[Rfam]
Rfam assigns this 95-nucleotide RNA sequence from Nannospalax galili to the family "Small nucleolar RNA SNORD125". Rfam links the family to the GO terms RNA processing and nucleolus. The organism belongs to Nannospalax, within Eukaryota. The family has 16 seed sequences and 526 matches in Rfam 15.1. The family is grouped with related families in Rfam's "SNORD61 clan".

RNA sequence: AACAUUGAUAGCCCCUCUUGAUGAUUCCUCUUCCUGAGUGGCUUGUGAUGAGCAAACUGAGCCUCUAAGAAGUUGACUGAAGGGGCAGCUUCUCA
Numbered sequence: 001a002a003c004a005u006u007g008a009u010a011g012c013c014c015c016u017c018u019u020g021a022u023g024a025u026u027c028c029u030c031u032u033c034c035u036g037a038g039u040g041g042c043u044u045g046u047g048a049u050g051a052g053c054a055a056a057c058u059g060a061g062c063c064u065c066u067a068a069g070a071a072g073u074u075g076a077c078u079g080a081a082g083g084g085g086c087a088g089c090u091u092c093u094c095a
Base pairs, nucleotide, nucleotide: 007090009088011086012085013084014083015082